[Rfam]
About this RNA:
A member of the RNA family "Singlet oxygen resistance RNA X" from Gemmobacter megaterium, 75 nucleotides long.

RNA sequence: CCCCUGGCCGCAACGGGGUCAUGUUGCGGCACCUCCCUGUUGGACUUGGCCCGGACCUUUGGUCCGGGCUUUUUU
Numbered sequence: 001c002c003c004c005u006g007g008c009c010g011c012a013a014c015g016g017g018g019u020c021a022u023g024u025u026g027c028g029g030c031a032c033c034u035c036c037c038u039g040u041u042g043g044a045c046u047u048g049g050c051c052c053g054g055a056c057c058u059u060u061g062g063u064c065c066g067g068g069c070u071u072u073u074u075u
Stems, first nucleotide, its partner, number of pairs: 008029007049069008
On this family, see Peng et al., RNA Biol 2016: "Regulation of a polyamine transporter by the conserved 3' UTR-derived sRNA SorX confers resistance to singlet oxygen and organic hydroperoxides in Rhodobacter sphaeroides". Taxonomically the source falls in Gemmobacter (Bacteria, Pseudomonadota, Alphaproteobacteria, Paracoccaceae). Rfam describes the family as follows. SorX (RSs2461)like SorY is a singlet oxygen induced sRNA that counteracts oxidative stress by targeting mRNA for a transporter in Rhodobacter. It also has an impact on resistance against organic hydroperoxides. It targets SD sequence of potA mRNA via an aSD sequence.